[Rfam]
RNA sequence: GAUCAAUGAUGAAAAUAGCCAGAUCAGAACAUCAGAAGCUCUUCAGUCUACCUGAUGUAUGAUCUUUAAUUCUGAGA
Numbered sequence: 001g002a003u004c005a006a007u008g009a010u011g012a013a014a015a016u017a018g019c020c021a022g023a024u025c026a027g028a029a030c031a032u033c034a035g036a037a038g039c040u041c042u043u044c045a046g047u048c049u050a051c052c053u054g055a056u057g058u059a060u061g062a063u064c065u066u067u068a069a070u071u072c073u074g075a076g077a
Stems, first nucleotide, its partner, number of pairs: 029058005037049002040046001
Notes
This 77-nucleotide sequence from Erinaceus europaeus belongs to the Rfam family "Small nucleolar RNA U2-19". For this family Rfam cites "Guide RNAs with 5' Caps and Novel Box C/D snoRNA-like Domains for Modification of snRNAs in Metazoa" (Tycowski et al., Curr Biol, 2004). The match comes from Rfam's covariance-model search (79 bits). NCBI's taxonomy places the organism under Eukaryota, Sarcopterygii, Eulipotyphla, Erinaceinae, Erinaceus. The family's consensus secondary structure is taken from published work.